[Rfam]
RNA sequence: AUUCCUUGUCUUCAAAUCAAUAUCUGUGUUACCUCUUUAGGUAUUCCUUCGAACAAGAUGCAAAAAUAACUGAAUAUGAAAGCCCUUCUACAAGUGAUUAGCCUAGUCGUAAUUAGCGUGGUGGUGAUUAUUAUCCCACCGUGCGGGGCUGCACUUGGACGAGGAAAGGCUUAAAAAACAAGCCUUAACGAACUAAGACCCCCGCACCGAAAGGUCCGGGGGUUUUUUUAUGACUUAAAAACUUAAACGAGGAGCAGAUAAUGAUGACUAGCAUAAAAUACUGUUUCUCUCGAAGUAU
Numbered sequence: 001a002u003u004c005c006u007u008g009u010c011u012u013c014a015a016a017u018c019a020a021u022a023u024c025u026g027u028g029u030u031a032c033c034u035c036u037u038u039a040g041g042u043a044u045u046c047c048u049u050c051g052a053a054c055a056a057g058a059u060g061c062a063a064a065a066a067u068a069a070c071u072g073a074a075u076a077u078g079a080a081a082g083c084c085c086u087u088c089u090a091c092a093a094g095u096g097a098u099u100a101g102c103c104u105a106g107u108c109g110u111a112a113u114u115a116g117c118g119u120g121g122u123g124g125u126g127a128u129u130a131u132u133a134u135c136c137c138a139c140c141g142u143g144c145g146g147g148g149c150u151g152c153a154c155u156u157g158g159a160c161g162a163g164g165a166a167a168g169g170c171u172u173a174a175a176a177a178a179c180a181a182g183c184c185u186u187a188a189c190g191a192a193c194u195a196a197g198a199c200c201c202c203c204g205c206a207c208c209g210a211a212a213g214g215u216c217c218g219g220g221g222g223u224u225u226u227u228u229u230a231u232g233a234c235u236u237a238a239a240a241a242c243u244u245a246a247a248c249g250a251g252g253a254g255c256a257g258a259u260a261a262u263g264a265u266g267a268c269u270a271g272c273a274u275a276a277a278a279u280a281c282u283g284u285u286u287c288u289c290u291c292g293a294a295g296u297a298u
Stems, first nucleotide, its partner, number of pairs: 007031002010028001012026001016021001037074002040071003044066002048062001049058002084252003092244002098238003101234001103232001105229002108118003120140005126135003141160002144157004163189001168185002171182002195226010206215003253285005261274003
Dot-bracket structure: ......((.(.(...(....)....).).)).....((.(((.((..(((......))...)..))..))).)).........(((.....((....((((.(.((.(((.....))).(((((.(((....))))))))((.((((......)))).))..(....((.((........)).))...).....((((((((((.(((....))).)))))))))).))..).).)))....)).....)))(((((...(((........)))......))))).............
This 298-nucleotide RNA from Enterobacter sp. 638 belongs to the Rfam family "Soft rot Enterobacteriaceae Rev 39 5'UTR". Rfam classes the family as a cis-regulatory element. From bacteria cultured under starvation conditions. The literature on the family includes a 2016 paper in BMC Genomics by Kwenda et al., "Discovery and profiling of small RNAs responsive to stress conditions in the plant pathogen Pectobacterium atrosepticum". Gene Ontology term of the family: cellular response to starvation. A search with the family's covariance model found it, with a score of 164 bits.